[Rfam]
RNA sequence: UGCCGAUGAGGAAGAAUUCCCAAAGUAUAGGAAGUGUCGUAUGACACUCUCUAAACGCAACAUUUUU
Numbered sequence: 001u002g003c004c005g006a007u008g009a010g011g012a013a014g015a016a017u018u019c020c021c022a023a024a025g026u027a028u029a030g031g032a033a034g035u036g037u038c039g040u041a042u043g044a045c046a047c048u049c050u051c052u053a054a055a056c057g058c059a060a061c062a063u064u065u066u067u
Stems, first nucleotide, its partner, number of pairs: 014061001031051002033048004
Notes
Rfam assigns this 67-nucleotide RNA from Striga asiatica to the family "Small nucleolar RNA U49". Gene Ontology terms of the family: nucleolus and RNA processing. The family is grouped with related families in Rfam's "SNORD49 clan". On this family, see Brown et al., RNA 2001: "Multiple snoRNA gene clusters from Arabidopsis". The base pairs follow the family's consensus structure, which was predicted with CMfinder.